RNA sequence: AUAGAGGCACCCGAAAAUCUGUAAAAGAGUAGGGA
Number, nucleotide and partner (000 for none) at each position: 001a000002u021003a020004g019005a018006g000007g000008c000009a000010c034011c033012c032013g000014a000015a000016a000017a000018u005019c004020u003021g002022u000023a000024a000025a000026a000027g000028a000029g000030u000031a000032g012033g011034g010035a000